[Rfam]
RNA sequence: ACCCUUGUGGCUCAGAGGACAGAGCACCCGUCUGCGAAGCGGGAGGUCGUCGGUUCGAAUCCGGCCGAGGGUA
Numbered sequence: 001a002c003c004c005u006u007g008u009g010g011c012u013c014a015g016a017g018g019a020c021a022g023a024g025c026a027c028c029c030g031u032c033u034g035c036g037a038a039g040c041g042g043g044a045g046g047u048c049g050u051c052g053g054u055u056c057g058a059a060u061c062c063g064g065c066c067g068a069g070g071g072u073a
Stems, first nucleotide, its partner, number of pairs: 001072007010025004027043005049065005
A member of the RNA family "tRNA" from Thermomonospora umbrina, 73 nucleotides long. Pairs were carried over by alignment from the consensus structure, which is taken from published work. The organism belongs to Thermomonospora, within Bacteria. By type it is a transfer RNA. Rfam 15.1 lists 5,335,975 matches to the family in 14,413 species.